Annotation:
Mitochondrial DNA control region secondary structure A: a 105-nucleotide sequence from Rhinopithecus roxellana. NCBI's taxonomy places the organism under Eukaryota, Chordata, Vertebrata, Boreoeutheria, Rhinopithecus. Pairs were carried over by alignment from the consensus structure, which is taken from published work. Rfam classes the family as an antisense RNA.

[Rfam]
RNA sequence: GUAUUCUAAGGGGGCAUAACCACAAAAUACAAUUUUAGUAUAAUCUAAUUUUAUAUGCCCUUAUGUAAUUCGUGCAUUACUGCUAGUCACCAUGGAUAUUAUAUA
Numbered sequence: 001g002u003a004u005u006c007u008a009a010g011g012g013g014g015c016a017u018a019a020c021c022a023c024a025a026a027a028u029a030c031a032a033u034u035u036u037a038g039u040a041u042a043a044u045c046u047a048a049u050u051u052u053a054u055a056u057g058c059c060c061u062u063a064u065g066u067a068a069u070u071c072g073u074g075c076a077u078u079a080c081u082g083c084u085a086g087u088c089a090c091c092a093u094g095g096a097u098a099u100u101a102u103a104u105a
Stems, first nucleotide, its partner, number of pairs: 005096004010091002012088002014083003024036005038058002043054002063077005